[Rfam]
RNA sequence: CCGCCCGUCGCACCUACCGAUUGAAUCAUUCGGUGAGGAUCUCGGAUUUUGUUGCUUACGCUUCACGGCGUUUUCGACGAGAGAAGUCAUCCAAACCUCAUGAUUUAGAGGAAGGUGAAGUCGUAACAAGGUUUCCGUAGGUGAACCUGCGGAAGGAUCAUUA
Numbered sequence: 001c002c003g004c005c006c007g008u009c010g011c012a013c014c015u016a017c018c019g020a021u022u023g024a025a026u027c028a029u030u031c032g033g034u035g036a037g038g039a040u041c042u043c044g045g046a047u048u049u050u051g052u053u054g055c056u057u058a059c060g061c062u063u064c065a066c067g068g069c070g071u072u073u074u075c076g077a078c079g080a081g082a083g084a085a086g087u088c089a090u091c092c093a094a095a096c097c098u099c100a101u102g103a104u105u106u107a108g109a110g111g112a113a114g115g116u117g118a119a120g121u122c123g124u125a126a127c128a129a130g131g132u133u134u135c136c137g138u139a140g141g142u143g144a145a146c147c148u149g150c151g152g153a154a155g156g157a158u159c160a161u162u163a
Stems, first nucleotide, its partner, number of pairs: 001130001003127001006123002009120001011117005017111002021107001023106007032097003037092004043086001047082008059070004132155010

Rfam assigns this 163-nucleotide part of an RNA from Ectocarpus sp. CCAP 1310/34 to the family "Eukaryotic small subunit ribosomal RNA". The match comes from Rfam's covariance-model search (1781 bits).